Record summary
The family of this 92-nucleotide sequence is "Rhodo-rpoB RNA". It is annotated as a cis-regulatory element.
RNA sequence: GAUUCGGGCGCGGCCGGUGGGACGGCCGCAGGAAUGGAACCCGACGGCCUGUUUUCGUGAGCGGCCCGCCGCCCGGCCCCGGGGCGUGCGCG
Numbered sequence: 001g002a003u004u005c006g007g008g009c010g011c012g013g014c015c016g017g018u019g020g021g022a023c024g025g026c027c028g029c030a031g032g033a034a035u036g037g038a039a040c041c042c043g044a045c046g047g048c049c050u051g052u053u054u055u056c057g058u059g060a061g062c063g064g065c066c067c068g069c070c071g072c073c074c075g076g077c078c079c080c081g082g083g084g085c086g087u088g089c090g091c092g
Stems, first nucleotide, its partner, number of pairs: 001041001003039003010029007065092001067090003070086005